The record is a 145-nucleotide sequence from Myotis brandtii, which matches "Small nucleolar RNA SNORA12" in Rfam. By type it is an H/ACA-box small nucleolar RNA. A reference for the family is Gu et al. (2005), "A novel experimental approach for systematic identification of box H/ACA snoRNAs from eukaryotes", Nucleic Acids Res.
RNA sequence: CUGAGGGACAGUGAACUGGCCCCCUGUUUAAAAAGUUUGAGAGGGCCUGACUCUGCCACAUAUAUUCUAUAGGAGCUGGGAAAGGCUUGAUGACAAAGAGAUUUCUCUCUAGCCUUUCCCGCAUCAGAGAUUGGCUCCCACAUGG
Numbered sequence: 001c002u003g004a005g006g007g008a009c010a011g012u013g014a015a016c017u018g019g020c021c022c023c024c025u026g027u028u029u030a031a032a033a034a035g036u037u038u039g040a041g042a043g044g045g046c047c048u049g050a051c052u053c054u055g056c057c058a059c060a061u062a063u064a065u066u067c068u069a070u071a072g073g074a075g076c077u078g079g080g081a082a083a084g085g086c087u088u089g090a091u092g093a094c095a096a097a098g099a100g101a102u103u104u105c106u107c108u109c110u111a112g113c114c115u116u117u118c119c120c121g122c123a124u125c126a127g128a129g130a131u132u133g134g135c136u137c138c139c140a141c142a143u144g145g
Stems, first nucleotide, its partner, number of pairs: 005059001007057001009055003018047003022043001024041002072138006078087002104130005

Overview:
From the family's description: U108 belongs to the H/ACA family of snoRNAs. The sequence is predicted to guide the pseudouridylation of the U372 residue in the 28S rRNA subunit. Gene Ontology terms of the family: RNA processing and nucleolus. The family has 23 seed sequences and 571 matches in Rfam 15.1. NCBI's taxonomy places the organism under Eukaryota, Sarcopterygii, Laurasiatheria, Chiroptera, Myotis.